[Rfam]
RNA sequence: UUGGUGAUAACGCUGAAUCCAGGAAACUGGAACGGGGGACCUACCUUUGGGGUGAAUCGUAAAGAGGGCUACACUCUAUGGCCUAACCCGUCAACUAACCUCGUAAGCAGAAUAGAGGAGGAAA
Numbered sequence: 001u002u003g004g005u006g007a008u009a010a011c012g013c014u015g016a017a018u019c020c021a022g023g024a025a026a027c028u029g030g031a032a033c034g035g036g037g038g039a040c041c042u043a044c045c046u047u048u049g050g051g052g053u054g055a056a057u058c059g060u061a062a063a064g065a066g067g068g069c070u071a072c073a074c075u076c077u078a079u080g081g082c083c084u085a086a087c088c089c090g091u092c093a094a095c096u097a098a099c100c101u102c103g104u105a106a107g108c109a110g111a112a113u114a115g116a117g118g119a120g121g122a123a124a
Stems, first nucleotide, its partner, number of pairs: 012108003018031003032104006042049002050089003058064001067083004
RNA: c-di-AMP riboswitch aptamer (ydaO/yuaA leader)
Organism: Fonticella tunisiensis